[Rfam]
RNA sequence: GAGAGAAGGUCUCUCGGUGUCGGUGUGCAGGCACUGGCAUCAAACCCUCUGCAAGCUACUGCAGUCGGAAACGUUGCGGUGGUGAGCGUUGCAAAGAGUAUGAUGGUCUUGCAGAUGCCAUCAU
Numbered sequence: 001g002a003g004a005g006a007a008g009g010u011c012u013c014u015c016g017g018u019g020u021c022g023g024u025g026u027g028c029a030g031g032c033a034c035u036g037g038c039a040u041c042a043a044a045c046c047c048u049c050u051g052c053a054a055g056c057u058a059c060u061g062c063a064g065u066c067g068g069a070a071a072c073g074u075u076g077c078g079g080u081g082g083u084g085a086g087c088g089u090u091g092c093a094a095a096g097a098g099u100a101u102g103a104u105g106g107u108c109u110u111g112c113a114g115a116u117g118c119c120a121u122c123a124u
Base pairs, nucleotide, nucleotide: 001015002014003013004012005011016041017040018039019038020037021036023034024033025032026031048097049096051092052091053090054089055083056082058080059079060078062076063075064074065073102122103121104120105119106118107117